RNA sequence: UUGCCUUCGAAACCAAGUGUGGGUGUGGCCUGAACAUUUGCUAUGGCGACCCAUCCUUGGUUUCUGAGGCUU
Numbered sequence: 001u002u003g004c005c006u007u008c009g010a011a012a013c014c015a016a017g018u019g020u021g022g023g024u025g026u027g028g029c030c031u032g033a034a035c036a037u038u039u040g041c042u043a044u045g046g047c048g049a050c051c052c053a054u055c056c057u058u059g060g061u062u063u064c065u066g067a068g069g070c071u072u
Base pairs, nucleotide, nucleotide: 003070004069005068006067007066009064010063011062012061013060014059016057017056021052022051023050024049028047029046030045

The record is a 72-nucleotide RNA from Anabarilius grahami, which matches "mir-551 microRNA precursor family" in Rfam.
The match comes from Rfam's covariance-model search (68 bits).
The family has 29 seed sequences and 1,097 matches in Rfam 15.1.